[Rfam]
RNA sequence: GAAAGACGCGCAUUUGUUAUCAUCAUCCUUAUUAUCAGAGAUACAUAAUUUGGCCACGUUGACGUGGCCUUUU
Numbered sequence: 001g002a003a004a005g006a007c008g009c010g011c012a013u014u015u016g017u018u019a020u021c022a023u024c025a026u027c028c029u030u031a032u033u034a035u036c037a038g039a040g041a042u043a044c045a046u047a048a049u050u051u052g053g054c055c056a057c058g059u060u061g062a063c064g065u066g067g068c069c070u071u072u073u
Stems, first nucleotide, its partner, number of pairs: 025042003029038002052069007